[Rfam]
RNA sequence: AUAGAAAAUGGCAAAACUUUCGAAAGGAAGUGACGCAAAGCUACGGGCCUAACUCUCUGACACGGUCGCCGGGUUGCCAAUA
Number, nucleotide and partner (000 for none) at each position: 001a000002u000003a000004g078005a000006a000007a000008a000009u000010g000011g036012c035013a000014a000015a000016a031017c030018u029019u028020u027021c026022g000023a000024a000025a000026g021027g020028a019029a018030g017031u016032g000033a000034c068035g012036c011037a000038a000039a075040g074041c073042u072043a000044c071045g070046g069047g066048c065049c064050u000051a000052a000053c000054u000055c000056u000057c000058u000059g000060a000061c000062a000063c000064g049065g048066u047067c000068g034069c046070c045071g044072g042073g041074u040075u039076g000077c000078c004079a000080a000081u000082a000